[Rfam]
RNA sequence: UGCUUAUAGAGAAAGACGGAGGGAUUAGACCCUGCGAAGUCUUAGCAACCUGUGCUUACAAGGUGCUAAAUUCUACUGAAGCGGCAGUUAAGCCCUUCUGAAAGAUAAGUU
Numbered sequence: 001u002g003c004u005u006a007u008a009g010a011g012a013a014a015g016a017c018g019g020a021g022g023g024a025u026u027a028g029a030c031c032c033u034g035c036g037a038a039g040u041c042u043u044a045g046c047a048a049c050c051u052g053u054g055c056u057u058a059c060a061a062g063g064u065g066c067u068a069a070a071u072u073c074u075a076c077u078g079a080a081g082c083g084g085c086a087g088u089u090a091a092g093c094c095c096u097u098c099u100g101a102a103a104g105a106u107a108a109g110u111u
Stems, first nucleotide, its partner, number of pairs: 002110006013043005021032003026075004044067004049063002051060003071103001076100001078098004
Dot-bracket structure: .((((((.....(((((...(((..[[[[)))......)))))((((.(((((....))).))))))...(]]]](.((((.............)))).)..).)))))).